[Rfam]
RNA sequence: GGUUUUAACCCAGUAUCACAAGGUACUACGGGGAUUCUGACCUGCCAAUUGUGGCUGCGUCAAAAACCUCAAUUUUUGGAGCGCCUUCCCGGGGAUAUCCGGGAGGGCAAA
Numbered sequence: 001g002g003u004u005u006u007a008a009c010c011c012a013g014u015a016u017c018a019c020a021a022g023g024u025a026c027u028a029c030g031g032g033g034a035u036u037c038u039g040a041c042c043u044g045c046c047a048a049u050u051g052u053g054g055c056u057g058c059g060u061c062a063a064a065a066a067c068c069u070c071a072a073u074u075u076u077u078g079g080a081g082c083g084c085c086u087u088c089c090c091g092g093g094g095a096u097a098u099c100c101g102g103g104a105g106g107g108c109a110a111a
Base pairs, nucleotide, nucleotide: 007036008035009032010031013029014028016025038062039061040060041059042057044055045054046053086109088107089106090105094100
The record is a 111-nucleotide sequence from Ancylostoma caninum, which matches "SL2 RNA" in Rfam. The family has 30 seed sequences and 598 matches in Rfam 15.1. It is annotated as a non-coding RNA gene. About the family: This family represents SL2 RNA. SL2 RNA is involved in trans splicing in lower eukaryotes. Trans-splicing is a form of RNA processing. The acquisition of a spliced leader from a SL RNA is a intra-molecular reaction which precisely joins exons derived from separately transcribed RNAs. Approximately 25% of C. elegans genes are organised into polycistronic transcription units and the presence of SL2 on an mRNA is an indication the the gene is in an operon. On this family, see Evans and Blumenthal, Mol Cell Biol 2000: "trans splicing of polycistronic Caenorhabditis elegans pre-mRNAs: analysis of the SL2 RNA". Pairs were carried over by alignment from the consensus structure, which is taken from published work.